[Rfam]
RNA sequence: GCGGUGCUGCGGGGUGCGUUAGAAGCACAUAUGUUCCCCGGGGCCUAUAAGAUCCGCAUGGGAGCUGUCCCUGACUGAGACCGUGGUCUCGGAUACACGGCGCCCACCUACGUUCGUAGGGACCAACGCGGGAUCAUCCGCUUCGACGGCCACCGCGGCACUUUG
Numbered sequence: 001g002c003g004g005u006g007c008u009g010c011g012g013g014g015u016g017c018g019u020u021a022g023a024a025g026c027a028c029a030u031a032u033g034u035u036c037c038c039c040g041g042g043g044c045c046u047a048u049a050a051g052a053u054c055c056g057c058a059u060g061g062g063a064g065c066u067g068u069c070c071c072u073g074a075c076u077g078a079g080a081c082c083g084u085g086g087u088c089u090c091g092g093a094u095a096c097a098c099g100g101c102g103c104c105c106a107c108c109u110a111c112g113u114u115c116g117u118a119g120g121g122a123c124c125a126a127c128g129c130g131g132g133a134u135c136a137u138c139c140g141c142u143u144c145g146a147c148g149g150c151c152a153c154c155g156c157g158g159c160a161c162u163u164u165g
Stems, first nucleotide, its partner, number of pairs: 003162009013151003017148003035133004040124002044121002060105003064101005073094001075092005
The family of this 165-nucleotide sequence from Hyphomicrobium sulfonivorans is "6S / SsrS RNA". The family's RNA type in Rfam is non-coding RNA gene.